Shown here is a 131-nucleotide RNA sequence from Anaeroplasma bactoclasticum, a member of the family "Ribosomal protein L20 leader". Pairs were carried over by alignment from the consensus structure, which was predicted with CMfinder. It scores 61 bits against the family's covariance model. The family's RNA type in Rfam is cis-regulatory leader.
[Rfam]
RNA sequence: UGUGGAAAGAAGAAACGCCUGUUUCUCGCCUGAUUGAUUUAGUUUGUUGGUAGGCAAAAAGUCACUAUAAUAUCUUAUAGAUAUAAUUAUGAUUUUUAAGAGGGCGUUUAUGUCCUCUUUUAUUUUUCCAA
Dot-bracket structure: ..........((((((....)))))).(((......(.......).......)))...........................................((((((((....)))))))).............

NCBI's taxonomy places the organism under Bacteria, Bacillati, Mycoplasmatota, Mollicutes, Anaeroplasma. This family is a putative r-protein leader autoregulatory structure found in B. subtilis and other low-GC Gram-positive bacteria. Its family is annotated with regulation of gene expression in the Gene Ontology.